[Rfam]
RNA sequence: GCGCUGUCGGCGUUGCGGGCCCAGGGCGACGGGACGUCUUCCCGGGGCCGACCUGUGUGCUGGUCCCGGAGUGACGGGUUUCCGACUCGGUCUCUCGACGGAGGCUCCCGCAGCCCGGCGGGCUUGGGCCUCAGGUAACGCCGGU
Numbered sequence: 001g002c003g004c005u006g007u008c009g010g011c012g013u014u015g016c017g018g019g020c021c022c023a024g025g026g027c028g029a030c031g032g033g034a035c036g037u038c039u040u041c042c043c044g045g046g047g048c049c050g051a052c053c054u055g056u057g058u059g060c061u062g063g064u065c066c067c068g069g070a071g072u073g074a075c076g077g078g079u080u081u082c083c084g085a086c087u088c089g090g091u092c093u094c095u096c097g098a099c100g101g102a103g104g105c106u107c108c109c110g111c112a113g114c115c116c117g118g119c120g121g122g123c124u125u126g127g128g129c130c131u132c133a134g135g136u137a138a139c140g141c142c143g144g145u
Stems, first nucleotide, its partner, number of pairs: 008012001030084001032082003036079003040074002043069001045067003052063002097130001099128001104125001107122004
Human acetyl-coA cholesterol acyltransferase mRNA: a 145-nucleotide RNA from Cavia porcellus. The source organism's lineage runs through Eukaryota, Opisthokonta, Eumetazoa, Amniota and Cavia. It is annotated as a cis-regulatory element. A search with the family's covariance model found it, with a score of 71 bits. A reference for the family is Chen et al. (2008), "RNA secondary structures located in the interchromosomal region of human ACAT1 chimeric mRNA are required to produce the 56-kDa isoform", Cell Res. The base pairs follow the family's consensus structure, which is taken from published work.